[Rfam]
Nucleotides: 188
Base pairs, nucleotide, nucleotide: 006183007182008181009180010179011178017085018084019083020082021081022080024078025077033070034069035068036067037066038065039064089119090118091117092116093115094114095113096112097111098110099109100108120146121145124142125141126140128139129138130137131136148172149171150170151169152168153167154166
Number, partner (000 for none) and nucleotide at each position: 001000u002000u003000u004000u005000g006183a007182g008181g009180u010179a011178g012000a013000g014000g015000u016000u017085g018084c019083a020082a021081a022080a023000a024078u025077c026000a027000c028000g029000a030000g031000u032000a033070g034069g035068u036067u037066u038065c039064u040000u041000g042000a043000a044000g045000c046000g047000c048000g049000c050000g051000a052000a053000a054000c055000g056000c057000u058000a059000a060000g061000g062000a063000u064039g065038g066037g067036a068035a069034u070033c071000a072000a073000a074000a075000a076000g077025g078024a079000g080022u081021u082020u083019u084018g085017c086000c087000g088000a089119a090118g091117u092116c093115a094114a095113a096112u097111a098110a099109a100108u101000u102000u103000u104000u105000g106000c107000g108100g109099u110098u111097u112096a113095u114094u115093u116092g117091g118090u119089u120146g121145g122000g123000a124142c125141g126140g127000u128139u129138u130137g131136u132000g133000a134000a135000a136131g137130c138129g139128g140126c141125c142124g143000g144000a145121c146120u147000g148172c149171u150170a151169c152168u153167a154166g155000a156000a157000u158000a159000g160000u161000c162000u163000a164000u165000u166154u167153u168152a169151g170150u171149a172148g173000g174000u175000g176000c177000g178011c179010u180009a181008u182007c183006u184000g185000a186000c187000a188000a